[Rfam]
RNA sequence: AAAUAUAGCCAUAAUAGGUGUUGUUCCCCAUCCUGGAGCAACUUUUCCAUAUUCAGAAUUC
Numbered sequence: 001a002a003a004u005a006u007a008g009c010c011a012u013a014a015u016a017g018g019u020g021u022u023g024u025u026c027c028c029c030a031u032c033c034u035g036g037a038g039c040a041a042c043u044u045u046u047c048c049a050u051a052u053u054c055a056g057a058a059u060u061c
Stems, first nucleotide, its partner, number of pairs: 017045002020042008
Dot-bracket structure: ................((.((((((((.......)))))))).))................
Plastid-psbN 5UTR RNA: a 61-nucleotide sequence from Chondrus crispus. The base pairs follow the family's consensus structure, which was predicted with LocARNA. About the family: Plastid psbN is a non-coding RNA (ncRNA) recognised in plastids. It was reported as a conserved 11 stem-loop in the prime untranslated region (5UTR) of psbN genes.